[Rfam]
RNA sequence: UGCAGGGGACGACCCCUGCCCCCCCCCCCUUCCGCCCCGAGGGGGACGACCCCC
Number, nucleotide and partner (000 for none) at each position: 001u000002g019003c018004a017005g016006g015007g014008g013009a000010c000011g000012a000013c008014c007015c006016c005017u004018g003019c002020c000021c000022c000023c000024c000025c000026c000027c000028c000029c000030u000031u000032c000033c000034g000035c000036c000037c000038c000039g000040a000041g054042g053043g052044g051045g050046a000047c000048g000049a000050c045051c044052c043053c042054c041
Rfam assigns this 54-nucleotide sequence from Eleutherodactylus coqui to the family "Guanidine-II riboswitch aptamer (mini-ykkC)". The family's consensus secondary structure is taken from published work. For this family Rfam cites "Identification of 22 candidate structured RNAs in bacteria using the CMfinder comparative genomics pipeline" (Weinberg et al., Nucleic Acids Res, 2007). About the family: Simpler in structure and has fewer highly conserved nucleotide positions than the ykkC-yxkD leader. Lineage of the source: Eukaryota > Bilateria > Amphibia > Eleutherodactylus > Eleutherodactylus.